[Rfam]
RNA: U4 spliceosomal RNA
Organism: Chara braunii
Nucleotides: 143
Base pairs, nucleotide, nucleotide: 021053022052023051024050025049027048028047029046035043036042086109087108088107089106090105092103093102094101095100122143123142124141125140
Number, partner (000 for none) and nucleotide at each position: 001000a002000u003000c004000u005000c006000u007000g008000c009000g010000c011000u012000u013000g014000g015000g016000g017000c018000a019000a020000u021053g022052a023051c024050g025049c026000a027048g028047u029046c030000c031000a032000u033000g034000a035043g036042g037000g038000c039000u040000a041000a042036c043035c044000g045000a046029g047028a048027c049025g050024c051023g052022u053021c054000u055000a056000u057000u058000g059000c060000u061000g062000g063000u064000u065000g066000a067000a068000a069000a070000c071000a072000a073000u074000a075000u076000u077000c078000c079000a080000a081000a082000c083000c084000c085000c086109c087108u088107c089106a090105g091000g092103g093102g094101c095100c096000c097000a098000a099000c100095g101094g102093c103092c104000g105090c106089u107088g108087a109086g110000a111000a112000u113000u114000u115000c116000u117000g118000g119000a120000a121000g122143g123142c124141g125140u126000c127000c128000g129000c130000c131000u132000a133000u134000a135000g136000g137000c138000g139000a140125a141124c142123g143122c